[Rfam]
RNA sequence: UGGGUCGGCAAGACGGUCGCGUGGUCUGGUAACAGGCCCCGAGGAACGUCCGGGCUCCGCAGAGCAUGGCGGUGGGUAAUUCCCACCCGGGGUAACCCGCGAGACAGUGCAACAGAAAGCAGACCGCCGCCGGCUCAGGCCGGAGGUAAGGGUGAAACGGUGGUGUAAGAGACCACCAGCGGCCGGGGUGACCCGGUCGGCUAUGUAAACCUCGCCAGGAGCAAGGUCGAACAGGAAGCGUUACGGGUUGCUCGCCCAGUUUCCGGGUAGACCGCUAGAGGCGUGCGGCAACGUACGUCGUAGAUAGAUGGCCGUCCAGCGCGCGUUUUGUGACGCGCGUGAACAGAACCCGGCGUAUCAGCCGGCCCAUUCA
Numbered sequence: 001u002g003g004g005u006c007g008g009c010a011a012g013a014c015g016g017u018c019g020c021g022u023g024g025u026c027u028g029g030u031a032a033c034a035g036g037c038c039c040c041g042a043g044g045a046a047c048g049u050c051c052g053g054g055c056u057c058c059g060c061a062g063a064g065c066a067u068g069g070c071g072g073u074g075g076g077u078a079a080u081u082c083c084c085a086c087c088c089g090g091g092g093u094a095a096c097c098c099g100c101g102a103g104a105c106a107g108u109g110c111a112a113c114a115g116a117a118a119g120c121a122g123a124c125c126g127c128c129g130c131c132g133g134c135u136c137a138g139g140c141c142g143g144a145g146g147u148a149a150g151g152g153u154g155a156a157a158c159g160g161u162g163g164u165g166u167a168a169g170a171g172a173c174c175a176c177c178a179g180c181g182g183c184c185g186g187g188g189u190g191a192c193c194c195g196g197u198c199g200g201c202u203a204u205g206u207a208a209a210c211c212u213c214g215c216c217a218g219g220a221g222c223a224a225g226g227u228c229g230a231a232c233a234g235g236a237a238g239c240g241u242u243a244c245g246g247g248u249u250g251c252u253c254g255c256c257c258a259g260u261u262u263c264c265g266g267g268u269a270g271a272c273c274g275c276u277a278g279a280g281g282c283g284u285g286c287g288g289c290a291a292c293g294u295a296c297g298u299c300g301u302a303g304a305u306a307g308a309u310g311g312c313c314g315u316c317c318a319g320c321g322c323g324c325g326u327u328u329u330g331u332g333a334c335g336c337g338c339g340u341g342a343a344c345a346g347a348a349c350c351c352g353g354c355g356u357a358u359c360a361g362c363c364g365g366c367c368c369a370u371u372c373a
Stems, first nucleotide, its partner, number of pairs: 001369009011358001012316007020041002023038006046356003050353005055221004062253004067217005072086005087101001088099004102212002107210002109206003124151002126147003130143005159177006179201001180199008225273004234264006245257004280299008
The record is a 373-nucleotide sequence from Conyzicola lurida, which matches "Bacterial RNase P class A" in Rfam.
Taxonomically the source falls in Conyzicola (Bacteria, Bacillati, Actinomycetota, Actinomycetes).
Pairs were carried over by alignment from the consensus structure, which is taken from published work.
Rfam describes the family as follows. Ribonuclease P (RNase P) is a ubiquitous endoribonuclease, found in archaea, bacteria and eukarya as well as chloroplasts and mitochondria.